[Rfam]
RNA sequence: UUUAAUGCUUACCCAGUACUCAGUGUAGGGUCUGUGUGUAUAAGAACUACAGCUACAUCUGAUUACUGGGUCGGGAAAGACGUCA
Numbered sequence: 001u002u003u004a005a006u007g008c009u010u011a012c013c014c015a016g017u018a019c020u021c022a023g024u025g026u027a028g029g030g031u032c033u034g035u036g037u038g039u040a041u042a043a044g045a046a047c048u049a050c051a052g053c054u055a056c057a058u059c060u061g062a063u064u065a066c067u068g069g070g071u072c073g074g075g076a077a078a079g080a081c082g083u084c085a
Stems, first nucleotide, its partner, number of pairs: 013069006020062003023058006032052004